[Rfam]
RNA sequence: CGAGCCGGCCGGGCGGUCGCGUCGGGGGAGCACACACUCCCUCGCCGAGGAACGUCCGGGCUCCACAGGGCAGGAUGGUGGGUAACGCCCACCCGGGGUGACCCGCGGGACAGUGCCACAGAAAGCAAACCGCCGGGGCCGUAUCCGUACGGCUCCCGGUAAGGGUGAAACGGUGGUGUAAGAGACCACCAGCGCCCAGGGUGACCUGGGCGGCUCGGUAAACCCCAUCCGGAGCAAGGUCAAGAGGGAGCACUCCGGUGCUCCUGCGCGGACGACCGAGGGCGGCCCGCCCGAGUCCGCGGGUAGACCGCACGAGGCCGGCGGCAACGCCGGUCCUAGAUGGAUGACCGCCGCCCCGGGGCGCCGCAAGGCCCCCGAGGCACAGAACCCGGCGUACAGGCCGACUCGUCCG
Numbered sequence: 001c002g003a004g005c006c007g008g009c010c011g012g013g014c015g016g017u018c019g020c021g022u023c024g025g026g027g028g029a030g031c032a033c034a035c036a037c038u039c040c041c042u043c044g045c046c047g048a049g050g051a052a053c054g055u056c057c058g059g060g061c062u063c064c065a066c067a068g069g070g071c072a073g074g075a076u077g078g079u080g081g082g083u084a085a086c087g088c089c090c091a092c093c094c095g096g097g098g099u100g101a102c103c104c105g106c107g108g109g110a111c112a113g114u115g116c117c118a119c120a121g122a123a124a125g126c127a128a129a130c131c132g133c134c135g136g137g138g139c140c141g142u143a144u145c146c147g148u149a150c151g152g153c154u155c156c157c158g159g160u161a162a163g164g165g166u167g168a169a170a171c172g173g174u175g176g177u178g179u180a181a182g183a184g185a186c187c188a189c190c191a192g193c194g195c196c197c198a199g200g201g202u203g204a205c206c207u208g209g210g211c212g213g214c215u216c217g218g219u220a221a222a223c224c225c226c227a228u229c230c231g232g233a234g235c236a237a238g239g240u241c242a243a244g245a246g247g248g249a250g251c252a253c254u255c256c257g258g259u260g261c262u263c264c265u266g267c268g269c270g271g272a273c274g275a276c277c278g279a280g281g282g283c284g285g286c287c288c289g290c291c292c293g294a295g296u297c298c299g300c301g302g303g304u305a306g307a308c309c310g311c312a313c314g315a316g317g318c319c320g321g322c323g324g325c326a327a328c329g330c331c332g333g334u335c336c337u338a339g340a341u342g343g344a345u346g347a348c349c350g351c352c353g354c355c356c357c358g359g360g361g362c363g364c365c366g367c368a369a370g371g372c373c374c375c376c377g378a379g380g381c382a383c384a385g386a387a388c389c390c391g392g393c394g395u396a397c398a399g400g401c402c403g404a405c406u407c408g409u410c411c412g
Base pairs, nucleotide, nucleotide: 001408002407003406004405006403007402008401009400010399011397012352013351014350015349016348017347018346020047021046023044024043025042026041027040028039029038030037052395053394054393056392057391058390059389060388061234062233063232064231068288069287070286071285073230074229075228076227077226078092079091080090081089082088093107094105095104096103097102108225109224113223114222115219116218117217130164131163132160133159134158135157136156137155138154140152172190173189174188175187176186177185192214193212194211195210196209197208198207199206200205238309239308240307241306248300250298252296253295280292281291282290283289316335317334318333319332320331321330322329323328
Shown here is a 412-nucleotide RNA sequence from Streptomyces albus, a member of the family "Bacterial RNase P class A".
Its Rfam clan is "RNaseP clan".
About the family: Ribonuclease P (RNase P) is a ubiquitous endoribonuclease, found in archaea, bacteria and eukarya as well as chloroplasts and mitochondria.
Gene Ontology terms of the family: dimeric ribonuclease P complex, tRNA processing and ribonuclease P activity.
It scores 272 bits against the family's covariance model.